[Rfam]
RNA sequence: GACUAUUUCGGCAGUUCUUAUCGUGGUGGGAAAGCGCAUGGGCAGGAUGGUGUAACCAUCCGGCGACAGCCACCCAUGCGCUAGAUGACAGGCUCCUCAAGGGGCCUUUUUUUAUGGCCAGAA
Numbered sequence: 001g002a003c004u005a006u007u008u009c010g011g012c013a014g015u016u017c018u019u020a021u022c023g024u025g026g027u028g029g030g031a032a033a034g035c036g037c038a039u040g041g042g043c044a045g046g047a048u049g050g051u052g053u054a055a056c057c058a059u060c061c062g063g064c065g066a067c068a069g070c071c072a073c074c075c076a077u078g079c080g081c082u083a084g085a086u087g088a089c090a091g092g093c094u095c096c097u098c099a100a101g102g103g104g105c106c107u108u109u110u111u112u113u114a115u116g117g118c119c120a121g122a123a
Stems, first nucleotide, its partner, number of pairs: 007028001009026001029119002033082010045061006063070002087108001090107007

This 123-nucleotide RNA from Ciceribacter lividus belongs to the Rfam family "Rhizobiales sRNA Atu_C8". Taxonomically the source falls in Ciceribacter (Bacteria, Pseudomonadota, Hyphomicrobiales, Rhizobiaceae). A reference for the family is Wilms et al. (2012), "Deep sequencing uncovers numerous small RNAs on all four replicons of the plant pathogen Agrobacterium tumefaciens", RNA Biol.